Description:
Shown here is a 92-nucleotide RNA from Populus trichocarpa, a member of the family "Small nucleolar RNA Z103". It scores 76 bits against the family's covariance model. Its family is annotated with nucleolus and RNA processing in the Gene Ontology. Lineage of the source: Eukaryota > Streptophyta > Mesangiospermae > eudicotyledons > Populus. For this family Rfam cites "The high diversity of snoRNAs in plants: identification and comparative study of 120 snoRNA genes from Oryza sativa" (Chen et al., Nucleic Acids Res, 2003).
[Rfam]
RNA sequence: AUGGAAAUGAUGAUUAUUUCCCCAAAUGAUCGGUACUGAAUAAAAUGAGUGAUCUCUCUCUUCAGAGAUUACUAGCCAGAAAGCUGAUCCAU
Numbered sequence: 001a002u003g004g005a006a007a008u009g010a011u012g013a014u015u016a017u018u019u020c021c022c023c024a025a026a027u028g029a030u031c032g033g034u035a036c037u038g039a040a041u042a043a044a045a046u047g048a049g050u051g052a053u054c055u056c057u058c059u060c061u062u063c064a065g066a067g068a069u070u071a072c073u074a075g076c077c078a079g080a081a082a083g084c085u086g087a088u089c090c091a092u
Stems, first nucleotide, its partner, number of pairs: 001092005